RNA sequence: CGGUCAGGCCUUUCAGGCAUCCUCUCCUAAAACUUUUCGGGGCCGGCAAAUGCCGGCCCUUUUUUUUCGGCUAA
Number, nucleotide and partner (000 for none) at each position: 001c000002g000003g000004u000005c000006a000007g000008g018009c017010c016011u015012u000013u000014c000015a011016g010017g009018c008019a000020u000021c000022c000023u000024c000025u000026c000027c000028u000029a000030a000031a000032a000033c000034u000035u000036u000037u000038c000039g000040g059041g058042g057043c056044c055045g054046g053047c052048a000049a000050a000051u000052g047053c046054c045055g044056g043057c042058c041059c040060u000061u000062u000063u000064u000065u000066u000067u000068c000069g000070g000071c000072u000073a000074a000
RNA: Makes More Granules Regulator RNA (mmgR)